Rfam assigns this 119-nucleotide sequence from Neobacillus bataviensis to the family "Bacillus sRNA ncr1015".
[Rfam]
RNA sequence: GUAUAAGAUGUAACACUUAUGCCUAUAAAACUUAUUAAAGUCGUGAUCUGAUUAUAUCAUUGCGUCUGAUUAUAUACAAUAUAAAAGAACCUGAUAAAACUAUCCAGGUUCUUUUUUGA
Number, nucleotide and partner (000 for none) at each position: 001g000002u000003a000004u000005a000006a000007g000008a000009u000010g000011u000012a000013a000014c000015a000016c000017u000018u000019a000020u000021g000022c000023c000024u000025a000026u000027a000028a000029a000030a000031c000032u000033u000034a073035u072036u000037a070038a000039a065040g000041u000042c062043g061044u000045g000046a000047u000048c000049u000050g000051a000052u000053u000054a000055u000056a000057u000058c000059a000060u000061u043062g042063c000064g000065u039066c000067u000068g000069a000070u037071u000072a035073u034074a000075u000076a000077c000078a000079a000080u000081a000082u000083a115084a114085a113086a112087g111088a110089a109090c108091c107092u106093g105094a000095u000096a000097a000098a000099a000100c000101u000102a000103u000104c000105c093106a092107g091108g090109u089110u088111c087112u086113u085114u084115u083116u000117u000118g000119a000